[Rfam]
RNA sequence: ACCUAGGGUAGAGGUGCUGUUUUUAAAAGUAUUUAUUUGGAGCUGGCAAGUGUAGAUGAAUAAAGAAAGGAAAAAUAGCCGAAGAAGAUAACUUGGCGAAGUUUUUUUCUGGUUAUAUAUAUAAUAUGUAUAUAACUGUCACUUUAAAGAAAGAUAAUUAUAGUGUUAUCUUUCAAUUAUUAAAGUGGAGAGCUACAAGGGAU
Numbered sequence: 001a002c003c004u005a006g007g008g009u010a011g012a013g014g015u016g017c018u019g020u021u022u023u024u025a026a027a028a029g030u031a032u033u034u035a036u037u038u039g040g041a042g043c044u045g046g047c048a049a050g051u052g053u054a055g056a057u058g059a060a061u062a063a064a065g066a067a068a069g070g071a072a073a074a075a076u077a078g079c080c081g082a083a084g085a086a087g088a089u090a091a092c093u094u095g096g097c098g099a100a101g102u103u104u105u106u107u108u109c110u111g112g113u114u115a116u117a118u119a120u121a122u123a124a125u126a127u128g129u130a131u132a133u134a135a136c137u138g139u140c141a142c143u144u145u146a147a148a149g150a151a152a153g154a155u156a157a158u159u160a161u162a163g164u165g166u167u168a169u170c171u172u173u174c175a176a177u178u179a180u181u182a183a184a185g186u187g188g189a190g191a192g193c194u195a196c197a198a199g200g201g202a203u
Stems, first nucleotide, its partner, number of pairs: 008196004016079009032064008083110006090103005111137011139188009